Background
Rfam assigns this 214-nucleotide RNA from Miscanthus lutarioriparius to the family "MIR6217 microRNA precursor family". The match comes from Rfam's covariance-model search (131 bits).

RNA sequence: UGGCUAUAAAAUAACUUAUUCUGUGGCCACUUUGAGUUACGAUAAUUACUAUACUAAUUUAUGAGAUUAUAGUAACUCCUUGCUAUGUGAUUUACUAUAAUGUUAAGGUAAAUAACCCAUGUGUUAUAGUAACAGAACUAUCGUAAAUAUGUAUUCUCUUUAUCGUAAAUUAGUUUAAACAUAGGUGGCUAUAGAAUAACUUAUUCUGUAGCUA
Numbered sequence: 001u002g003g004c005u006a007u008a009a010a011a012u013a014a015c016u017u018a019u020u021c022u023g024u025g026g027c028c029a030c031u032u033u034g035a036g037u038u039a040c041g042a043u044a045a046u047u048a049c050u051a052u053a054c055u056a057a058u059u060u061a062u063g064a065g066a067u068u069a070u071a072g073u074a075a076c077u078c079c080u081u082g083c084u085a086u087g088u089g090a091u092u093u094a095c096u097a098u099a100a101u102g103u104u105a106a107g108g109u110a111a112a113u114a115a116c117c118c119a120u121g122u123g124u125u126a127u128a129g130u131a132a133c134a135g136a137a138c139u140a141u142c143g144u145a146a147a148u149a150u151g152u153a154u155u156c157u158c159u160u161u162a163u164c165g166u167a168a169a170u171u172a173g174u175u176u177a178a179a180c181a182u183a184g185g186u187g188g189c190u191a192u193a194g195a196a197u198a199a200c201u202u203a204u205u206c207u208g209u210a211g212c213u214a
Stems, first nucleotide, its partner, number of pairs: 001214008010205005016199017050177002053174010065164003069160001072156001074154001080146004087141003091137002093131011107117002
Dot-bracket structure: ((((((((.(((((.(((((((((((((((((.................((.((((((((((..(((.(..(.(.....((((...(((.(((((((((((((...((.......))...)))))))))))....)).))).)))).......).)...).))))))))))))).)).....))))))))))))))))).))))).))))))))

Background:
Gene Ontology terms of the family: miRNA-mediated post-transcriptional gene silencing and RISC complex.